The record is a 171-nucleotide RNA from Sinocyclocheilus rhinocerous, which matches "Small Cajal body specific RNA 1" in Rfam. Taxonomically the source falls in Sinocyclocheilus (Eukaryota, Bilateria, Chordata, Cyprinoidei). The base pairs follow the family's consensus structure, which was predicted with RNAalifold. The match comes from Rfam's covariance-model search (75 bits). scaRNAs are a specific class of small nuclear RNAs which localise to the Cajal bodies and guide the modification of RNA polymerase II transcribed spliceosomal RNAs U1, U2, U4, U5 and U12. ACA35 belong to the H/ACA box class of guide RNAs as it has the predicted hairpin-hinge-hairpin-tail structure, conserved H/ACA-box motifs and is found associated with GAR1. It is predicted to guide pseudouridylation of the U2 spliceosomal snRNA at residue U89. It is annotated as a small Cajal body RNA.
RNA sequence: AUGCACCAGAUACUGACCUGUCUGCCUGCGGCUCAGUUGAGUUUUCUCACACUGAUGCAUGCAUGAUGGUGGCUGUCAGGUCCAAACGGUGCUACAGAAACACAAGACCCUGAGAUUUAAGCUCUGAGAGGGGAGUCGCUCCCUCAGCUGUUAUAACUCUAGGGCACAUUA
Dot-bracket structure: ..(((((.......((((.(.(.((((((((((.((((((......))).))).).)).)))).......))).).).)))).....)))))...............((................(.(((........))).)(.((..((....)).)).))).......